Record summary
This 268-nucleotide RNA sequence from Eudromia elegans belongs to the Rfam family "RNase MRP". A search with the family's covariance model found it, with a score of 129 bits. The base pairs follow the family's consensus structure, which is taken from published work. By type it is a ribozyme. The organism belongs to Eudromia, within Eukaryota.

RNA sequence: GGCUGCGCUGAAGACCUGCUAUCUAGGCCACGCACGGAGGACGCCGGUUCCUCCCGGGCCCCGCGCCCGCCUAGGGGAAAGUCCCCGGACAUCGCCGGCAGAGAGUGCCGCGCGCUGCCGGCGCCCGCGCCCGCCCUGCAGUCUCACGCAGCACCGCCGAGACGCCCCCGGGCCGAGCGGGUGAGCGGGGGUGGGCCCUCGUCACGGCCACAGGCACGCAGGUAGUGCGCGUGCGCACCAACACAACGGGGCUCACUCUCAGCGCCGC
Numbered sequence: 001g002g003c004u005g006c007g008c009u010g011a012a013g014a015c016c017u018g019c020u021a022u023c024u025a026g027g028c029c030a031c032g033c034a035c036g037g038a039g040g041a042c043g044c045c046g047g048u049u050c051c052u053c054c055c056g057g058g059c060c061c062c063g064c065g066c067c068c069g070c071c072u073a074g075g076g077g078a079a080a081g082u083c084c085c086c087g088g089a090c091a092u093c094g095c096c097g098g099c100a101g102a103g104a105g106u107g108c109c110g111c112g113c114g115c116u117g118c119c120g121g122c123g124c125c126c127g128c129g130c131c132c133g134c135c136c137u138g139c140a141g142u143c144u145c146a147c148g149c150a151g152c153a154c155c156g157c158c159g160a161g162a163c164g165c166c167c168c169c170g171g172g173c174c175g176a177g178c179g180g181g182u183g184a185g186c187g188g189g190g191g192u193g194g195g196c197c198c199u200c201g202u203c204a205c206g207g208c209c210a211c212a213g214g215c216a217c218g219c220a221g222g223u224a225g226u227g228c229g230c231g232u233g234c235g236c237a238c239c240a241a242c243a244c245a246a247c248g249g250g251g252c253u254c255a256c257u258c259u260c261a262g263c264g265c266c267g268c
Stems, first nucleotide, its partner, number of pairs: 002268002005265007014223006022075007037053005080253002083251004097109004110126001112124004128195001130193001134191004142184002154180004164173003225238005